The family of this 136-nucleotide RNA from Winslowiella iniecta is "Molybdenum/Tungsten riboswitch aptamer (Moco RNA motif)".
NCBI's taxonomy places the organism under Bacteria, Gammaproteobacteria, Enterobacterales, Erwiniaceae, Winslowiella.
The family's consensus secondary structure is taken from published work.
RNA sequence: UUCUGUAAAUCACACUCUAGCCUUUGUGCCUAAGUCCUCGUGAUAUGGCGCACUGGCCGUAGCCUUUGAGCUGCCAGGGUGCAGAAAGAAAUGACUGCAUCUCCCCAUAUUGGAAAGGUGUUCUGGUGUCACAAUU
Numbered sequence: 001u002u003c004u005g006u007a008a009a010u011c012a013c014a015c016u017c018u019a020g021c022c023u024u025u026g027u028g029c030c031u032a033a034g035u036c037c038u039c040g041u042g043a044u045a046u047g048g049c050g051c052a053c054u055g056g057c058c059g060u061a062g063c064c065u066u067u068g069a070g071c072u073g074c075c076a077g078g079g080u081g082c083a084g085a086a087a088g089a090a091a092u093g094a095c096u097g098c099a100u101c102u103c104c105c106c107a108u109a110u111u112g113g114a115a116a117g118g119u120g121u122u123c124u125g126g127u128g129u130c131a132c133a134a135u136u
Stems, first nucleotide, its partner, number of pairs: 012121004017117001020057003025052006034044003059074005077102008087092001103113002